[Rfam]
RNA sequence: CUCUUAUUAUGAGAAGGCUGAGGGAAUUGGCCCUUUGACGCCCGGCAACCCGCAUUUGUGCGAAGGUGCUUCUUCCAACAGACAUCAAUGUCUGGAAGAUAAGAG
Numbered sequence: 001c002u003c004u005u006a007u008u009a010u011g012a013g014a015a016g017g018c019u020g021a022g023g024g025a026a027u028u029g030g031c032c033c034u035u036u037g038a039c040g041c042c043c044g045g046c047a048a049c050c051c052g053c054a055u056u057u058g059u060g061c062g063a064a065g066g067u068g069c070u071u072c073u074u075c076c077a078a079c080a081g082a083c084a085u086c087a088a089u090g091u092c093u094g095g096a097a098g099a100u101a102a103g104a105g
Base pairs, nucleotide, nucleotide: 001105002104003103004102005101006100007099008098013043016042017041018040022033023032024031027078028077029076030075044070045069046068047067049066050065051062052061053060054059074097079094080093081092082091083090084089
RNA: SAM riboswitch aptamer (S box leader)